Shown here is a 35-nucleotide sequence from Pedobacter sp. Leaf216, a member of the family "DUF805b RNA". It scores 46 bits against the family's covariance model. The family's consensus secondary structure is taken from published work. NCBI's taxonomy places the organism under Bacteria, Pseudomonadati, Bacteroidota, Sphingobacteriia, Pedobacter. Its Rfam clan is "DUF805 clan".

[Rfam]
RNA sequence: CCGGAAGAAGCCGAAAAUCCGGAAUAGAGUAGGCA
Numbered sequence: 001c002c003g004g005a006a007g008a009a010g011c012c013g014a015a016a017a018u019c020c021g022g023a024a025u026a027g028a029g030u031a032g033g034c035a
Stems, first nucleotide, its partner, number of pairs: 002021004010034003